[Rfam]
RNA sequence: GAAUUUCACCGGGGGAGCCGCGAGCCAUGGAGCGGCUGAGAGGUCCCGUAGGGCGGGACGACCCCUUAACCUGAUCCGGUUCGUACCGGCGUAGGGAGAGUGUGCAUUGACCCAG
Numbered sequence: 001g002a003a004u005u006u007c008a009c010c011g012g013g014g015g016a017g018c019c020g021c022g023a024g025c026c027a028u029g030g031a032g033c034g035g036c037u038g039a040g041a042g043g044u045c046c047c048g049u050a051g052g053g054c055g056g057g058a059c060g061a062c063c064c065c066u067u068a069a070c071c072u073g074a075u076c077c078g079g080u081u082c083g084u085a086c087c088g089g090c091g092u093a094g095g096g097a098g099a100g101u102g103u104g105c106a107u108u109g110a111c112c113c114a115g
Stems, first nucleotide, its partner, number of pairs: 007102003011065004017036005043059007070095004076089004